[Rfam]
RNA sequence: UCACUGCUGUGUUUUAUGGCUUUCUAUUCCUAUGUGAUUUUCUUUUCCAUGUCACAUAGGGUCUAAAGCCAUUGGCUACAGAGUGGA
Numbered sequence: 001u002c003a004c005u006g007c008u009g010u011g012u013u014u015u016a017u018g019g020c021u022u023u024c025u026a027u028u029c030c031u032a033u034g035u036g037a038u039u040u041u042c043u044u045u046u047c048c049a050u051g052u053c054a055c056a057u058a059g060g061g062u063c064u065a066a067a068g069c070c071a072u073u074g075g076c077u078a079c080a081g082a083g084u085g086g087a
Stems, first nucleotide, its partner, number of pairs: 002086001005083001007081005013075002016072008028061010
Record summary:
This 87-nucleotide sequence from Merluccius polli belongs to the Rfam family "mir-135 microRNA precursor family". The family has 88 seed sequences and 2,125 matches in Rfam 15.1. It scores 70 bits against the family's covariance model. For this family Rfam cites "Identification of tissue-specific microRNAs from mouse" (Lagos-Quintana et al., Curr Biol, 2002).